[Rfam]
RNA: Small nucleolar RNA U2-19
Organism: Phascolarctos cinereus
RNA sequence: GAUCAGUGAUCAAAAAUAGCCAAAUAUGCACAUCAGGAGACCAUCUGGUCUUUGUGGUACAUGAUCUACAUGUAUUUCUGAGA
Number, nucleotide and partner (000 for none) at each position: 001g000002a000003u000004c000005a000006g000007u000008g000009a000010u000011c000012a000013a000014a000015a000016a000017u000018a000019g000020c000021c000022a000023a000024a000025u000026a000027u000028g000029c000030a000031c000032a058033u057034c056035a000036g000037g000038a051039g050040a049041c048042c000043a000044u000045c000046u000047g000048g041049u040050c039051u038052u000053u000054g000055u000056g034057g033058u032059a000060c000061a000062u000063g000064a000065u000066c000067u000068a000069c000070a000071u000072g000073u000074a000075u000076u000077u000078c000079u000080g000081a000082g000083a000